[Rfam]
RNA sequence: CGGGGUCGAGAGCAGACUCCCCGCGCACCAAGAGGCCCCGGCCUCCAAGUUCUGC
Dot-bracket structure: (((((......[[[[[..)))))........(((((....))))).....]]]]]

Rfam assigns this 55-nucleotide sequence from Ramlibacter agri to the family "chrB-b RNA". Rfam classes the family as a cis-regulatory element. Pairs were carried over by alignment from the consensus structure, which is taken from published work.